RNA sequence: AAAGCAAACUCUGGAGAGUCUCCAAAAGGGCGCCGAAGGUGUACGGCAGAUCAGGUAAUCUGCCAAUCUCUCAGGCAAAAGGACAGAGGAUCACGU
Numbered sequence: 001a002a003a004g005c006a007a008a009c010u011c012u013g014g015a016g017a018g019u020c021u022c023c024a025a026a027a028g029g030g031c032g033c034c035g036a037a038g039g040u041g042u043a044c045g046g047c048a049g050a051u052c053a054g055g056u057a058a059u060c061u062g063c064c065a066a067u068c069u070c071u072c073a074g075g076c077a078a079a080a081g082g083a084c085a086g087a088g089g090a091u092c093a094c095g096u
Base pairs, nucleotide, nucleotide: 006091009088010087011086012085013084020030021029022028032076033075034074035072036071039070041068046063047062048061049060050059051058
Dot-bracket structure: .....(..(((((......(((.....))).(((((..(.(....((((((......))))))....).))).))).......)))))..).....
Glycine riboswitch aptamer: a 96-nucleotide RNA sequence from Clostridium sp. chh4-2. NCBI's taxonomy places the organism under Bacteria, Bacillati, Clostridia, Clostridiaceae, Clostridium. About the family: This family represents the bacterial glycine riboswitch.